The record is a 75-nucleotide RNA sequence from Trypanosoma cruzi, which matches "Trypanosomatid snoRNA TB10Cs5H3" in Rfam. The family's consensus secondary structure was predicted with WAR.
[Rfam]
RNA sequence: AAACGGGAACUCUCUGGAUGCAUUUUCCGGCUACUUAUUUCUCCGGGUGCCACUCCUCAUCUUUUCCCGAAGAGG
Numbered sequence: 001a002a003a004c005g006g007g008a009a010c011u012c013u014c015u016g017g018a019u020g021c022a023u024u025u026u027c028c029g030g031c032u033a034c035u036u037a038u039u040u041c042u043c044c045g046g047g048u049g050c051c052a053c054u055c056c057u058c059a060u061c062u063u064u065u066c067c068c069g070a071a072g073a074g075g
Stems, first nucleotide, its partner, number of pairs: 004069006016056003028045002